Description: A member of the RNA family "MIR535 microRNA precursor family" from Nyssa sinensis, 95 nucleotides long. The family's consensus secondary structure was predicted with RNAalifold. For this family Rfam cites "Conservation and divergence of microRNAs and their functions in Euphorbiaceous plants" (Zeng et al., Nucleic Acids Res, 2010). The organism belongs to Nyssa, within Eukaryota. Gene Ontology terms of the family: RISC complex and miRNA-mediated post-transcriptional gene silencing.

RNA sequence: CAAAUCACAUGACAACGACAAAGAGCACGCUUGUACACAAUCAUGUCCCUUGCAUGAAUGCUGACAGGCGUGCUCUCUCUCGUUGUCAAGUAAUG
Dot-bracket structure: .........(((((.((..(..(.((((((((((.............................)))))))))).)..)..)).))))).......
Numbered sequence: 001c002a003a004a005u006c007a008c009a010u011g012a013c014a015a016c017g018a019c020a021a022a023g024a025g026c027a028c029g030c031u032u033g034u035a036c037a038c039a040a041u042c043a044u045g046u047c048c049c050u051u052g053c054a055u056g057a058a059u060g061c062u063g064a065c066a067g068g069c070g071u072g073c074u075c076u077c078u079c080u081c082g083u084u085g086u087c088a089a090g091u092a093a094u095g
Stems, first nucleotide, its partner, number of pairs: 010088005016082002020078001023075001025073010